The family of this 172-nucleotide sequence from Thermotalea metallivorans is "Group II catalytic intron D1-D4-3".

RNA sequence: UCCAUCGUGAGGUGGAAUCUGAAGGAAGCCCUAGGCAAAGUCUCGGUCUGAGGAACACGAACCACAUAUAAGGCUUCUUGGAACGGACGAGUUUGCAAGACAAAACAAAGUCCAACACUACACGAAUUUCAAGGAGUAAAUGGGGCAGAUAGAUGAGAUGAAGGUUAUCGUU
Numbered sequence: 001u002c003c004a005u006c007g008u009g010a011g012g013u014g015g016a017a018u019c020u021g022a023a024g025g026a027a028g029c030c031c032u033a034g035g036c037a038a039a040g041u042c043u044c045g046g047u048c049u050g051a052g053g054a055a056c057a058c059g060a061a062c063c064a065c066a067u068a069u070a071a072g073g074c075u076u077c078u079u080g081g082a083a084c085g086g087a088c089g090a091g092u093u094u095g096c097a098a099g100a101c102a103a104a105a106c107a108a109a110g111u112c113c114a115a116c117a118c119u120a121c122a123c124g125a126a127u128u129u130c131a132a133g134g135a136g137u138a139a140a141u142g143g144g145g146c147a148g149a150u151a152g153a154u155g156a157g158a159u160g161a162a163g164g165u166u167a168u169c170g171u172u
Base pairs, nucleotide, nucleotide: 001016002015003014004013005012006011028172030170035165036164040159041158042157043156044155045154046150047149048148049147050146062145063144065142066141067140073137074136075135077133078132079131080130081129082128083127085113086112087111088110091106092105093104094103
The literature on the family includes a 2001 paper in Trends Genet by Bonen and Vogel, "The ins and outs of group II introns". Rfam 15.1 lists 4,274 matches to the family in 1,585 species.